[Rfam]
RNA: ZMP/ZTP riboswitch aptamer (pfl RNA motif)
Organism: Dictyobacter aurantiacus
RNA sequence: UAUUCUUCUGGCAACUGGCGAUAAGUAGUGGAUAACCACGAGGAAGCCAGAAGGAAUAGAAAUACAACAGUCGCUCGCCUGGGCUGGAUAU
Numbered sequence: 001u002a003u004u005c006u007u008c009u010g011g012c013a014a015c016u017g018g019c020g021a022u023a024a025g026u027a028g029u030g031g032a033u034a035a036c037c038a039c040g041a042g043g044a045a046g047c048c049a050g051a052a053g054g055a056a057u058a059g060a061a062a063u064a065c066a067a068c069a070g071u072c073g074c075u076c077g078c079c080u081g082g083g084c085u086g087g088a089u090a091u
Stems, first nucleotide, its partner, number of pairs: 003055010015043002017079005028039004068086005